[Rfam]
The family of this 264-nucleotide RNA from Pleomassaria siparia is "A. fumigatus sRNA Afu_309". By type it is a small RNA. The organism belongs to Pleomassaria siparia, within Eukaryota.

RNA sequence: UCCAACGACCUGUGUCCGACUGUCCCGUCCACCUCUAGGGGUGUGUUCGGUUGACGGUCUGGCAGUUCGACCGAUUAUGGAGCCAUCAACACCUCAUGAUGUCAAUCUUCCGGUCGACAGGUUGGAGAGCGAGUCGGCGCGUCUAUUGCCUGAAUUCACCUUCGGGUUUGAGCUCGGUGGUAGGCGUGCCAGGACGACUAAUUUCAAGUCCCUGCGGAUGCCGUUGGCAGUUGAAGCUUGGGAAAAACCUAGUCAGCUACAUAC
Numbered sequence: 001u002c003c004a005a006c007g008a009c010c011u012g013u014g015u016c017c018g019a020c021u022g023u024c025c026c027g028u029c030c031a032c033c034u035c036u037a038g039g040g041g042u043g044u045g046u047u048c049g050g051u052u053g054a055c056g057g058u059c060u061g062g063c064a065g066u067u068c069g070a071c072c073g074a075u076u077a078u079g080g081a082g083c084c085a086u087c088a089a090c091a092c093c094u095c096a097u098g099a100u101g102u103c104a105a106u107c108u109u110c111c112g113g114u115c116g117a118c119a120g121g122u123u124g125g126a127g128a129g130c131g132a133g134u135c136g137g138c139g140c141g142u143c144u145a146u147u148g149c150c151u152g153a154a155u156u157c158a159c160c161u162u163c164g165g166g167u168u169u170g171a172g173c174u175c176g177g178u179g180g181u182a183g184g185c186g187u188g189c190c191a192g193g194a195c196g197a198c199u200a201a202u203u204u205c206a207a208g209u210c211c212c213u214g215c216g217g218a219u220g221c222c223g224u225u226g227g228c229a230g231u232u233g234a235a236g237c238u239u240g241g242g243a244a245a246a247a248c249c250u251a252g253u254c255a256g257c258u259a260c261a262u263a264c
Base pairs, nucleotide, nucleotide: 006124007123008122009121010120011119012118013117014063015062016061018059019058021056022055023054024053025050026049027048029045030043031042032041033040034039071116073114075112078104079103080102082100084098136190137189138188140186141185147179148178149177150176152175153174155172156171157170159166160165193257195256196254197253198252199251200250209243210242211241212240214237215236219229220228221227222226